A member of the RNA family "RT-13 RNA" from Sphingomonas sp. PAMC 26617, 65 nucleotides long.
Pairs were carried over by alignment from the consensus structure, which is taken from published work.
The family's RNA type in Rfam is small RNA.
NCBI's taxonomy places the organism under Bacteria, Pseudomonadota, Sphingomonadales, Sphingomonadaceae, Sphingomonas.
RNA sequence: GUGUGCGUCCGGGGGCAUCCAGUUAAAUCUGGGGUUUCGGGUCAAGACUGGCCCCCGGACUCUGC
Numbered sequence: 001g002u003g004u005g006c007g008u009c010c011g012g013g014g015g016c017a018u019c020c021a022g023u024u025a026a027a028u029c030u031g032g033g034g035u036u037u038c039g040g041g042u043c044a045a046g047a048c049u050g051g052c053c054c055c056c057g058g059a060c061u062c063u064g065c
Stems, first nucleotide, its partner, number of pairs: 007060010019032004034048004